[Rfam]
RNA sequence: GUUUCUAAAUCGCUUAAAUCGUGUGAUACGGGGGACCCGUUACAAAUGGAUUUUUUACAUAAUGAAUCCUUGGGGUGAAUCCUUAACAGGUAGGGCUACUCAAUGGCCCGAAUCCGGCAGCUAACCUCGUCAGCGUUAUAUGAGAAGGAAG
Numbered sequence: 001g002u003u004u005c006u007a008a009a010u011c012g013c014u015u016a017a018a019u020c021g022u023g024u025g026a027u028a029c030g031g032g033g034g035a036c037c038c039g040u041u042a043c044a045a046a047u048g049g050a051u052u053u054u055u056u057a058c059a060u061a062a063u064g065a066a067u068c069c070u071u072g073g074g075g076u077g078a079a080u081c082c083u084u085a086a087c088a089g090g091u092a093g094g095g096c097u098a099c100u101c102a103a104u105g106g107c108c109c110g111a112a113u114c115c116g117g118c119a120g121c122u123a124a125c126c127u128c129g130u131c132a133g134c135g136u137u138a139u140a141u142g143a144g145a146a147g148g149a150a151g
Stems, first nucleotide, its partner, number of pairs: 011135004018027003028130006038072002073115003081090003093109004
Description
Shown here is a 151-nucleotide RNA from Bacillus sp. SJS, a member of the family "c-di-AMP riboswitch aptamer (ydaO/yuaA leader)". A search with the family's covariance model found it, with a score of 89 bits. Rfam links the family to the GO terms cyclic-di-AMP binding and regulation of gene expression. Pairs were carried over by alignment from the consensus structure.